[Rfam]
RNA: mir-876 microRNA precursor family
Organism: Macaca mulatta
RNA sequence: UGAAGUGCUGUGGAUUUCUUUGUGAAUCACCAUAUCUAAGCUAAUGUGGUGGUGGUUUACAAAGUAAUUCAUAGUGCUUCA
Numbered sequence: 001u002g003a004a005g006u007g008c009u010g011u012g013g014a015u016u017u018c019u020u021u022g023u024g025a026a027u028c029a030c031c032a033u034a035u036c037u038a039a040g041c042u043a044a045u046g047u048g049g050u051g052g053u054g055g056u057u058u059a060c061a062a063a064g065u066a067a068u069u070c071a072u073a074g075u076g077c078u079u080c081a
Stems, first nucleotide, its partner, number of pairs: 002080015018064016036046001